[Rfam]
RNA sequence: AAGACCUUACUUCAUAGGAUCAUUUCUAUAGUAAGCUCUUACCGAGAACUUCACACUACGUGAAUGAUCGACAACCACGAUGAUGAGGCGUGGCGCGGCAUCCUGAGCGUGAGGCAGGCAAUGGUUAGCUAACCAUUAGCCAUCAAUGAUCGUUCGCUUCCUUUCACAGGGAAGAGUGGGAUGUUGUCGCUAUCUGAGUGGU
Numbered sequence: 001a002a003g004a005c006c007u008u009a010c011u012u013c014a015u016a017g018g019a020u021c022a023u024u025u026c027u028a029u030a031g032u033a034a035g036c037u038c039u040u041a042c043c044g045a046g047a048a049c050u051u052c053a054c055a056c057u058a059c060g061u062g063a064a065u066g067a068u069c070g071a072c073a074a075c076c077a078c079g080a081u082g083a084u085g086a087g088g089c090g091u092g093g094c095g096c097g098g099c100a101u102c103c104u105g106a107g108c109g110u111g112a113g114g115c116a117g118g119c120a121a122u123g124g125u126u127a128g129c130u131a132a133c134c135a136u137u138a139g140c141c142a143u144c145a146a147u148g149a150u151c152g153u154u155c156g157c158u159u160c161c162u163u164u165c166a167c168a169g170g171g172a173a174g175a176g177u178g179g180g181a182u183g184u185u186g187u188c189g190c191u192a193u194c195u196g197a198g199u200g201g202u
Base pairs, nucleotide, nucleotide: 001040002039003038004037006035007034008033009032010031011030015028016027017026018025019024050064051063052062053061054060074202075201076200077199078198093190094189095188096186097185098184099183100182101181102180103179104178107153108152109151117141118140119139122135123134124133125132126131157174158173159172160171161170162169163168
RNA: Small nucleolar RNA U3
Organism: Bombyx mori